[Rfam]
RNA sequence: UCAUGCUAGACGGGGAGGCAGCGGUGCCCUGUAACCUGCAAUCCGCUACAGCAGGGUUGAAUUCCACGUCUAGGCUACAUUGUGUGAGGACUGACCGCGGUAAGUGGUGUUGAAGAUUGGGUCCUACGCAAGAGGAAUCUGUGAACCUCGUCAGAUCCGGAAGGAAGCAGCGAUAAGCGGAAUCUCCUCUGUGCCGUAGAACAACCUGGUCCGAGCUAACUGCCUCGGUAACGCUUGUUCAGUGUAGUCAAAGCGUGGUGCAUGA
Dot-bracket structure: ((((((..(((((((.(.(...).).))))....(((((...........)))))))).....((((((...(((((.((((.(((((...((..((.(((..(((((......((((((((.(((((((.(((((.(((((.....((((....(((....)))....))))...)))))...)))))))...)))))....))))))))...))).)).))).)).))...))))).)))).)))))...)))))).))))))
The family of this 265-nucleotide sequence from Clostridium cylindrosporum is "Bacterial large signal recognition particle RNA". Taxonomically the source falls in Clostridium cylindrosporum (Bacteria, Bacillati, Clostridia, Clostridiaceae). For this family Rfam cites "SRPDB: Signal Recognition Particle Database" (Rosenblad et al., Nucleic Acids Res, 2003). The family's RNA type in Rfam is non-coding RNA gene. The family's consensus secondary structure is taken from published work.